[Rfam]
RNA: Small nucleolar RNA SNORA48
Organism: Mesocricetus auratus
RNA sequence: AACCUCUGGCAAUGGGCAAAGAGACACCUUGUUGGUGGUGUCAUUCUCCUGUUUGUCAGGGCAAAGCCGAUGGCUGUCCUUUGUUUAUCCUAGCUUGAUGCCUGGCUUGGUGGCCAAAGUUGUUUCAUGCCUAAGGCACAGUU
Numbered sequence: 001a002a003c004c005u006c007u008g009g010c011a012a013u014g015g016g017c018a019a020a021g022a023g024a025c026a027c028c029u030u031g032u033u034g035g036u037g038g039u040g041u042c043a044u045u046c047u048c049c050u051g052u053u054u055g056u057c058a059g060g061g062c063a064a065a066g067c068c069g070a071u072g073g074c075u076g077u078c079c080u081u082u083g084u085u086u087a088u089c090c091u092a093g094c095u096u097g098a099u100g101c102c103u104g105g106c107u108u109g110g111u112g113g114c115c116a117a118a119g120u121u122g123u124u125u126c127a128u129g130c131c132u133a134a135g136g137c138a139c140a141g142u143u
Base pairs, nucleotide, nucleotide: 003061005060006059007058008057014053015052020047021046023042024041025040026039027038028037082138083137084136085135086134097131099129103127104126105125108122109121111119